Shown here is a 101-nucleotide RNA from Vagococcus vulneris, a member of the family "Guanidine-I riboswitch aptamer".
A search with the family's covariance model found it, with a score of 88 bits.
The pairing is the family consensus, mapped onto this sequence.
Lineage of the source: Bacteria > Bacillati > Lactobacillales > Enterococcaceae > Vagococcus.
RNA sequence: AGUCAAGUUUUCUAGGGUUCCGUGAAAUUUUUUCAGUCUGGACCGAGAGAAAACCAUGGCAGCUUUCUGCUAUGACACGGAAGGAUAAAAGCCUGGGAGUU
Numbered sequence: 001a002g003u004c005a006a007g008u009u010u011u012c013u014a015g016g017g018u019u020c021c022g023u024g025a026a027a028u029u030u031u032u033u034c035a036g037u038c039u040g041g042a043c044c045g046a047g048a049g050a051a052a053a054c055c056a057u058g059g060c061a062g063c064u065u066u067c068u069g070c071u072a073u074g075a076c077a078c079g080g081a082a083g084g085a086u087a088a089a090a091g092c093c094u095g096g097g098a099g100u101u
Base pairs, nucleotide, nucleotide: 007054008053009052010051011050012049015044016043020041021040022038023035024034025033026032027031055074056073057072058071059070060069061068062067076096078099082094083093084092